The record is a 73-nucleotide RNA sequence, which matches "Small nucleolar RNA snoR60" in Rfam. For this family Rfam cites "Fibrillarin genes encode both a conserved nucleolar protein and a novel small nucleolar RNA involved in ribosomal RNA methylation in Arabidopsis thaliana" (Barneche et al., J Biol Chem, 2000). It is one of the family's seed sequences. The base pairs follow the family's consensus structure, which was predicted with PFOLD.
RNA sequence: UUGCAAAUGAUGAUCUUACUUGGAUUCCCCUUCAGAUCAUUAUGGGUGAUGCAAUCUCCAAGUUUCUGAUGUA
Numbered sequence: 001u002u003g004c005a006a007a008u009g010a011u012g013a014u015c016u017u018a019c020u021u022g023g024a025u026u027c028c029c030c031u032u033c034a035g036a037u038c039a040u041u042a043u044g045g046g047u048g049a050u051g052c053a054a055u056c057u058c059c060a061a062g063u064u065u066c067u068g069a070u071g072u073a
Base pairs, nucleotide, nucleotide: 002073003072004071005070
Dot-bracket structure: .((((................................................................))))